[Rfam]
RNA sequence: CCCGCUCAAAUGAUGAAAUAUUUCGGAUGUAAAUCACAGACCUGUACCGAAAGCGCAAAACCGUGUGGAUAUUUUCCGUUGCCUUCCUUCUGAUUGAGCAU
Dot-bracket structure: ...((..................((((...............................................))))...................))..
This 101-nucleotide RNA from Cyphellophora europaea belongs to the Rfam family "Small nucleolar RNA Z13/snr52". Rfam classes the family as a C/D-box small nucleolar RNA. The family has 42 seed sequences and 1,203 matches in Rfam 15.1. The match comes from Rfam's covariance-model search (96 bits).